The record is a 91-nucleotide RNA from Dactylosporangium siamense, which matches "c-di-GMP-II-GAG riboswitch aptamer" in Rfam. Lineage of the source: Bacteria > Actinomycetota > Actinomycetes > Micromonosporaceae > Dactylosporangium. The base pairs follow the family's consensus structure, which is taken from published work. On this family, see Weinberg et al., Proc Natl Acad Sci U S A 2017: "Bioinformatic analysis of riboswitch structures uncovers variant classes with altered ligand specificity". Its family is annotated with cyclic-di-GMP binding and regulation of gene expression in the Gene Ontology.

[Rfam]
RNA sequence: AGAAAAUGGGGAGACGUUGAACCGGGCCGAGCAUCAAUCGGUCACCGCUUUGCGGCCCGGGGAGUCAGUGGUGAGACCGCCCCCAGCCGAG
Numbered sequence: 001a002g003a004a005a006a007u008g009g010g011g012a013g014a015c016g017u018u019g020a021a022c023c024g025g026g027c028c029g030a031g032c033a034u035c036a037a038u039c040g041g042u043c044a045c046c047g048c049u050u051u052g053c054g055g056c057c058c059g060g061g062g063a064g065u066c067a068g069u070g071g072u073g074a075g076a077c078c079g080c081c082c083c084c085a086g087c088c089g090a091g
Stems, first nucleotide, its partner, number of pairs: 007085005013066003022060008040078002042074005